This 55-nucleotide RNA from Streptomyces sp. NRRL S-350 belongs to the Rfam family "L17-Actino-Proteobacteria ribosomal protein leader". It is one of the family's seed sequences.

RNA sequence: CGUGCGGGCACAGUGCCCGUACGCCCGCUGCGGUACCUGAUACGGCCGUAGUCGG
Numbered sequence: 001c002g003u004g005c006g007g008g009c010a011c012a013g014u015g016c017c018c019g020u021a022c023g024c025c026c027g028c029u030g031c032g033g034u035a036c037c038u039g040a041u042a043c044g045g046c047c048g049u050a051g052u053c054g055g
Stems, first nucleotide, its partner, number of pairs: 001023009025055003028051007
The family's consensus secondary structure is taken from published work.